Source information: Shown here is a 74-nucleotide RNA from Ruminococcus sp. CAG:17, a member of the family "RAGATH-18 RNA". Actinobacteria, Firmicutes, Fusobacteria, Thermotogae (1 example). It is one of the family's seed sequences. By type it is a small RNA. The source organism's lineage runs through Bacteria, Bacillati, Bacillota, Eubacteriales and Ruminococcus.
[Rfam]
RNA sequence: ACUGUGGAGUGUACUUAGGAUCUGUGAGUAGAGAUAACGCAAGUUACUCAAAAGCAUACACGAAGAAACAGUAA
Numbered sequence: 001a002c003u004g005u006g007g008a009g010u011g012u013a014c015u016u017a018g019g020a021u022c023u024g025u026g027a028g029u030a031g032a033g034a035u036a037a038c039g040c041a042a043g044u045u046a047c048u049c050a051a052a053a054g055c056a057u058a059c060a061c062g063a064a065g066a067a068a069c070a071g072u073a074a
Base pairs, nucleotide, nucleotide: 001072002071003070004069005068009061010060011059012058013057023056024055025054031049032048033047037044038043